[Rfam]
RNA sequence: ACUCACUUGAGCUGUGCGACCGCAACGUGAAUGAAAAACUGUUUUGUUCGUUCGGCUCGAGUUAUUU
Numbered sequence: 001a002c003u004c005a006c007u008u009g010a011g012c013u014g015u016g017c018g019a020c021c022g023c024a025a026c027g028u029g030a031a032u033g034a035a036a037a038a039c040u041g042u043u044u045u046g047u048u049c050g051u052u053c054g055g056c057u058c059g060a061g062u063u064a065u066u067u
Base pairs, nucleotide, nucleotide: 001066003064005062006061007060008059009058010057011056012055013054017050018049022047023046024045025042026041
The family of this 67-nucleotide RNA sequence from Strigamia maritima is "mir-375 microRNA precursor family". The match comes from Rfam's covariance-model search (47 bits). NCBI's taxonomy places the organism under Eukaryota, Eumetazoa, Geophilomorpha, Linotaeniidae, Strigamia. Gene Ontology terms of the family: RISC complex and miRNA-mediated post-transcriptional gene silencing.